Rfam assigns this 531-nucleotide part of an RNA from Adineta vaga to the family "Eukaryotic small subunit ribosomal RNA".
For this family Rfam cites "The comparative RNA web (CRW) site: an online database of comparative sequence and structure information for ribosomal, intron, and other RNAs" (Cannone et al., BMC Bioinformatics, 2002).
Rfam's curators put it in the seed alignment.
[Rfam]
RNA sequence: UGUUUAAAAAGCUCGUAGUUGAAUUUCGGGUAUUUGUUGCUAGCUGGUCUAACUGGCCAUGUUGGUUAACAGAUCCUCAUUUGCUGGACGGCUGGCGAUGAUCUUUAUCGAUUGUCGUCAGUUGCCAGAACGUUUACUUUGAGAAAAUUAGAGUGCUAAAAGCAGGCUUUCGCCUAUAUAUAUUGCAUGGAAUAAUGAAAUAAGAUCUCGAUUUUAUUUCGUUGGUUUUAGAAAUUGAGAUAAUGAUUAAUAGGAUCAGAGGGGGGCGUACGUACUGUGGUGUGAGAGGUGAAAUUCUUGGAUCGCCACAGGACGAACAGCAGCGAAGGCGUUCGCCAAGAAUGUUUUCAUUAAUCAAGAACGAAAGUUUGAGGUUCGAAGACGAUUAGAUACCGUCCUAGUUCAAACCAUAAACGUUGCCAACUGUCUUUUAGAUGCGGUUAUUUAUAUGACUCAUCUGGCGGAUCUCGAGAAAUCUAAGUUUUUAGGUUCCGGGGGAAGUAUGGUUGCAAAGCUGAAACUUAAAAGAAU
Number, nucleotide and partner (000 for none) at each position: 001u494002g493003u000004u000005u000006a000007a000008a000009a491010a000011g362012c000013u360014c359015g000016u000017a000018g355019u354020u353021g000022a000023a000024u000025u000026u000027c000028g000029g000030g000031u000032a000033u000034u000035u000036g000037u000038u000039g000040c000041u000042a000043g000044c000045u000046g000047g000048u000049c000050u000051a000052a000053c000054u000055g000056g000057c000058c000059a000060u000061g000062u000063u000064g000065g000066u000067u000068a000069a000070c000071a000072g000073a000074u000075c000076c000077u000078c000079a000080u000081u000082u000083g000084c000085u000086g000087g000088a000089c000090g000091g000092c000093u000094g000095g000096c000097g000098a000099u000100g000101a000102u000103c000104u000105u000106u000107a000108u000109c000110g000111a000112u000113u000114g000115u000116c000117g000118u000119c000120a000121g000122u000123u000124g000125c000126c000127a000128g000129a000130a000131c000132g000133u000134u000135u000136a000137c000138u000139u000140u000141g000142a000143g000144a000145a000146a000147a000148u000149u000150a000151g000152a000153g000154u000155g000156c000157u000158a000159a000160a000161a000162g000163c000164a000165g000166g000167c000168u000169u000170u000171c000172g000173c000174c000175u000176a000177u000178a000179u000180a000181u000182a000183u000184u000185g000186c000187a000188u000189g000190g000191a000192a000193u000194a000195a000196u000197g000198a000199a000200a000201u000202a000203a000204g000205a000206u000207c000208u000209c000210g000211a000212u000213u000214u000215u000216a000217u000218u000219u000220c000221g000222u000223u000224g000225g000226u000227u000228u000229u000230a000231g000232a000233a000234a000235u000236u000237g000238a000239g000240a000241u000242a000243a000244u000245g000246a000247u000248u000249a000250a000251u000252a000253g349254g348255a347256u000257c344258a343259g000260a000261g000262g000263g000264g000265g337266g336267c335268g334269u000270a332271c315272g314273u000274a000275c311276u310277g309278u308279g307280g306281u305282g304283u000284g000285a000286g297287a296288g295289g000290u000291g000292a000293a000294a000295u288296u287297c286298u000299u000300g000301g000302a000303u000304c282305g281306c280307c279308a278309c277310a276311g275312g000313a000314c272315g271316a000317a000318c000319a000320g000321c000322a000323g330324c329325g000326a000327a000328g000329g324330c323331g000332u270333u000334c268335g267336c266337c265338a000339a000340g000341a000342a000343u258344g257345u000346u000347u255348u254349c253350a000351u000352u000353a020354a019355u018356c000357a000358a000359g014360a013361a000362c011363g000364a000365a000366a000367g408368u407369u406370u405371g404372a403373g000374g000375u000376u000377c401378g000379a000380a000381g397382a396383c395384g394385a000386u000387u000388a000389g000390a000391u000392a000393c000394c384395g383396u382397c381398c000399u000400a000401g377402u000403u372404c371405a370406a369407a368408c367409c000410a000411u000412a000413a000414a000415c000416g000417u000418u000419g490420c489421c488422a483423a482424c481425u000426g466427u465428c464429u000430u000431u461432u460433a459434g458435a457436u456437g455438c000439g000440g453441u452442u451443a000444u000445u000446u000447a000448u000449a000450u000451g442452a441453c440454u000455c437456a436457u435458c434459u433460g432461g431462c000463g000464g428465a427466u426467c000468u000469c000470g477471a476472g000473a000474a000475a000476u471477c470478u000479a000480a000481g424482u423483u422484u000485u000486u000487a000488g421489g420490u419491u009492c000493c002494g001495g000496g523497g522498g521499a000500a000501g000502u000503a000504u000505g516506g515507u514508u513509g000510c000511a000512a000513a508514g507515c506516u505517g000518a000519a000520a000521c498522u497523u496524a000525a000526a000527a000528g000529a000530a000531u000